[Rfam]
RNA sequence: AGAAAAGAUAGAGGCGCAAUUUGUAUUAGUAAAGUCGUAGAGGUGGCACGAUGAAAUGACUUGAAAGGAUGAAUUGCCGAAGUUAACAGCGAUGCCAAUUGUUGUUUGCUGGGGGUAAGCAGAAAAUGUUUAUCACUGUCAUAAAUUUUUGCAAAAAUUUGUGGAGGACUAUUAACGAA
Numbered sequence: 001a002g003a004a005a006a007g008a009u010a011g012a013g014g015c016g017c018a019a020u021u022u023g024u025a026u027u028a029g030u031a032a033a034g035u036c037g038u039a040g041a042g043g044u045g046g047c048a049c050g051a052u053g054a055a056a057u058g059a060c061u062u063g064a065a066a067g068g069a070u071g072a073a074u075u076g077c078c079g080a081a082g083u084u085a086a087c088a089g090c091g092a093u094g095c096c097a098a099u100u101g102u103u104g105u106u107u108g109c110u111g112g113g114g115g116u117a118a119g120c121a122g123a124a125a126a127u128g129u130u131u132a133u134c135a136c137u138g139u140c141a142u143a144a145a146u147u148u149u150u151g152c153a154a155a156a157a158u159u160u161g162u163g164g165a166g167g168a169c170u171a172u173u174a175a176c177g178a179a
Stems, first nucleotide, its partner, number of pairs: 007173005016077009032062007081110003085106008111137002114134008139164009